[Rfam]
RNA sequence: CCUUCCGUUCCGUCGGAAGUAGCCUACCUCGACGUGCGUUAUGGGUAACCGUAGGGUACGAAGCUCGAGGGACCAAGUACCGAAUGCCACACGGCAGCUGCUGGUAAUGUUGUGAAACAUGACGCAGUUCUGGGAGCUUCACCCGGAAUAGGGC
Numbered sequence: 001c002c003u004u005c006c007g008u009u010c011c012g013u014c015g016g017a018a019g020u021a022g023c024c025u026a027c028c029u030c031g032a033c034g035u036g037c038g039u040u041a042u043g044g045g046u047a048a049c050c051g052u053a054g055g056g057u058a059c060g061a062a063g064c065u066c067g068a069g070g071g072a073c074c075a076a077g078u079a080c081c082g083a084a085u086g087c088c089a090c091a092c093g094g095c096a097g098c099u100g101c102u103g104g105u106a107a108u109g110u111u112g113u114g115a116a117a118c119a120u121g122a123c124g125c126a127g128u129u130c131u132g133g134g135a136g137c138u139u140c141a142c143c144c145g146g147a148a149u150a151g152g153g154c
Base pairs, nucleotide, nucleotide: 002019003018004017005016006015007014028069029068030067031066032065033060034059035058036057037056039054040053041052042051043050044049085096086095087094088093099126100125101124110117111116129147130146131145132144133143134142

The record is a 154-nucleotide sequence from Noviherbaspirillum galbum, which matches "Group II catalytic intron D1-D4-7" in Rfam. The base pairs follow the family's consensus structure. It scores 106 bits against the family's covariance model. Rfam describes the family as follows. Group II introns are found in rRNA, tRNA and mRNA of organelles in fungi, plants and protists, and also in mRNA in bacteria. The organism belongs to Noviherbaspirillum, within Bacteria. The literature on the family includes a 2001 paper in EMBO J by Chu et al., "Control of branch-site choice by a group II intron".